[Rfam]
RNA sequence: CUUCAACGACCCCAGCCACAGCGGAUUCUCCGGGGAACGAUCCUUGCCAUACGUCGCCAGCAACGCCUGCGCCUC
Numbered sequence: 001c002u003u004c005a006a007c008g009a010c011c012c013c014a015g016c017c018a019c020a021g022c023g024g025a026u027u028c029u030c031c032g033g034g035g036a037a038c039g040a041u042c043c044u045u046g047c048c049a050u051a052c053g054u055c056g057c058c059a060g061c062a063a064c065g066c067c068u069g070c071g072c073c074u075c
Stems, first nucleotide, its partner, number of pairs: 014026001016024002031071002038065002043060002047056001049054001
RNA: ASpks TB sRNA
Organism: Winogradskya consettensis